[Rfam]
RNA sequence: CCUUCGAUGAUGAUUUAAACAUACUUUCGUUCUUCUGAGUUUCAUGAAGCCAAACUAUCUGUCCUGAGAAGG
Numbered sequence: 001c002c003u004u005c006g007a008u009g010a011u012g013a014u015u016u017a018a019a020c021a022u023a024c025u026u027u028c029g030u031u032c033u034u035c036u037g038a039g040u041u042u043c044a045u046g047a048a049g050c051c052a053a054a055c056u057a058u059c060u061g062u063c064c065u066g067a068g069a070a071g072g
Base pairs, nucleotide, nucleotide: 001072002071003070005068
A member of the RNA family "Small nucleolar RNA SNORD59" from Acipenser ruthenus, 72 nucleotides long. A reference for the family is Galardi et al. (2002), "Purified box C/D snoRNPs are able to reproduce site-specific 2'-O-methylation of target RNA in vitro", Mol Cell Biol. The match comes from Rfam's covariance-model search (72 bits).